[Rfam]
A member of the RNA family "A. fumigatus sRNA Afu_309" from Penicilliopsis zonata, 324 nucleotides long. It scores 262 bits against the family's covariance model. The source organism's lineage runs through Eukaryota, Fungi, saccharomyceta, Penicilliopsis and Penicilliopsis zonata.
RNA sequence: UUCUCAAGAACACAUACGGAUCUGUGUCCAGCGAUCCCAUUCACGAAGACUUUUCUUCCUCUUCGGAGAGGAAUUGGAUUUGUGUUUUGGUUGAACGCUGGACAGUUCGACGACCACGGAGCCAUCACUCUUUCUGGUGUCAAUUUCCUGUCGACAGAUCUCAGAGAAAAUGUCGGUGCUGGGUGUUCGUCUGGUCUUGAGCUCCCUUUUCGGAGGUGAGCUCGGCUGGAUUGCCCGGUUGCUGACGGCGUCAUAUUCCUACUCUCUUUGCCGAAUGGCCGUCGGCCAGUGAGGCUAGGGACAAACCAUGACAAGCCAACAUAU
Numbered sequence: 001u002u003c004u005c006a007a008g009a010a011c012a013c014a015u016a017c018g019g020a021u022c023u024g025u026g027u028c029c030a031g032c033g034a035u036c037c038c039a040u041u042c043a044c045g046a047a048g049a050c051u052u053u054u055c056u057u058c059c060u061c062u063u064c065g066g067a068g069a070g071g072a073a074u075u076g077g078a079u080u081u082g083u084g085u086u087u088u089g090g091u092u093g094a095a096c097g098c099u100g101g102a103c104a105g106u107u108c109g110a111c112g113a114c115c116a117c118g119g120a121g122c123c124a125u126c127a128c129u130c131u132u133u134c135u136g137g138u139g140u141c142a143a144u145u146u147c148c149u150g151u152c153g154a155c156a157g158a159u160c161u162c163a164g165a166g167a168a169a170a171u172g173u174c175g176g177u178g179c180u181g182g183g184u185g186u187u188c189g190u191c192u193g194g195u196c197u198u199g200a201g202c203u204c205c206c207u208u209u210u211c212g213g214a215g216g217u218g219a220g221c222u223c224g225g226c227u228g229g230a231u232u233g234c235c236c237g238g239u240u241g242c243u244g245a246c247g248g249c250g251u252c253a254u255a256u257u258c259c260u261a262c263u264c265u266c267u268u269u270g271c272c273g274a275a276u277g278g279c280c281g282u283c284g285g286c287c288a289g290u291g292a293g294g295c296u297a298g299g300g301a302c303a304a305a306c307c308a309u310g311a312c313a314a315g316c317c318a319a320c321a322u323a324u
Stems, first nucleotide, its partner, number of pairs: 018161008026103006033096001035094002037090003042084002046081003050077002056073002059070004111153004118141002121138003172242002178239006193227004199223006205216004247317003250312005263301005270295003277287004